Burkholderia RNA 14: a 173-nucleotide RNA from Cupriavidus basilensis. The literature on the family includes a 2013 paper in Genomics by Ramos et al., "Experimental identification of small non-coding regulatory RNAs in the opportunistic human pathogen Burkholderia cenocepacia J2315". Rfam classes the family as a small RNA. Co-purified with Hfq, expression confirmed by Northern blot. Putative functional homologue of PA-SraF. Overlaps coding sequence. A search with the family's covariance model found it, with a score of 62 bits.

[Rfam]
RNA sequence: GUGGGUGUCGUUACCGUCACGCCUACGACCGUUUCUGUUAUCAAUGAACUGCCGGGCCGCCUCGAAGGCGUGCGCACCGCCGAAGUACGGGCGCGGGUUUCCGGCAUCGUGCUGUCCCGCAACUACACGGAAGGCGGCGAGGUCAAGGCAGGCCAGUUGCUGUUCAAGAUCGA
Numbered sequence: 001g002u003g004g005g006u007g008u009c010g011u012u013a014c015c016g017u018c019a020c021g022c023c024u025a026c027g028a029c030c031g032u033u034u035c036u037g038u039u040a041u042c043a044a045u046g047a048a049c050u051g052c053c054g055g056g057c058c059g060c061c062u063c064g065a066a067g068g069c070g071u072g073c074g075c076a077c078c079g080c081c082g083a084a085g086u087a088c089g090g091g092c093g094c095g096g097g098u099u100u101c102c103g104g105c106a107u108c109g110u111g112c113u114g115u116c117c118c119g120c121a122a123c124u125a126c127a128c129g130g131a132a133g134g135c136g137g138c139g140a141g142g143u144c145a146a147g148g149c150a151g152g153c154c155a156g157u158u159g160c161u162g163u164u165c166a167a168g169a170u171c172g173a
Base pairs, nucleotide, nucleotide: 004053005052006051007050008047009046010045011043013041016038018037019036021034023031056149057148058147059143060142061141063139069136070135071134073133075130078093079092080091081090095120097118102114103113104112105111106110157172160168161167
Dot-bracket structure: ...((((((((.(..(.((.(.(.......)..).)))..).).)))..))))..((((((.(.....(((.(.(..((((........)))).(.(....(((((...)))))...).).........)..))))..).)))...))).......(..((.....))...).